[Rfam]
RNA sequence: GUGUAUCUUCAGGGCAGGGUGUGAUUCCCUACCGGUGGUUAAAGUCCACGACCCUACUCAGUACAGUAGGCUGAUUUGGUGAAAUUCCAAAACCGACGGUUAAAGUCCGGACGGAAGAAGAUGUUU
Numbered sequence: 001g002u003g004u005a006u007c008u009u010c011a012g013g014g015c016a017g018g019g020u021g022u023g024a025u026u027c028c029c030u031a032c033c034g035g036u037g038g039u040u041a042a043a044g045u046c047c048a049c050g051a052c053c054c055u056a057c058u059c060a061g062u063a064c065a066g067u068a069g070g071c072u073g074a075u076u077u078g079g080u081g082a083a084a085u086u087c088c089a090a091a092a093c094c095g096a097c098g099g100u101u102a103a104a105g106u107c108c109g110g111a112c113g114g115a116a117g118a119a120g121a122u123g124u125u126u
Base pairs, nucleotide, nucleotide: 003124004123005122006121007120008119009118010117017029018028019027031106032105033095034094035049036048037047038046044093045092053070054069075091076090077089078088079087097109098108099107
RNA: FMN riboswitch aptamer (RFN element)